[Rfam]
Shown here is an 80-nucleotide sequence from Hymenochirus boettgeri, a member of the family "mir-19 microRNA precursor family". Its family is annotated with miRNA-mediated post-transcriptional gene silencing and RISC complex in the Gene Ontology. It scores 76 bits against the family's covariance model. Rfam 15.1 lists 2,337 matches to the family in 651 species.

RNA sequence: UUUCAUGGUUCGUUUUGCAGGUUUGCUUUCAGCUGUUCUAAUGACUUGCUGUGCAAAUCCAUGCAAAACUGACUAUGGCA
Dot-bracket structure: ..((((((((.(((((((((((((((.(..(((..............)))).))))).)).)))))))).))))))))..
Numbered sequence: 001u002u003u004c005a006u007g008g009u010u011c012g013u014u015u016u017g018c019a020g021g022u023u024u025g026c027u028u029u030c031a032g033c034u035g036u037u038c039u040a041a042u043g044a045c046u047u048g049c050u051g052u053g054c055a056a057a058u059c060c061a062u063g064c065a066a067a068a069c070u071g072a073c074u075a076u077g078g079c080a
Stems, first nucleotide, its partner, number of pairs: 003078008012069008020060002022057005028051001031050003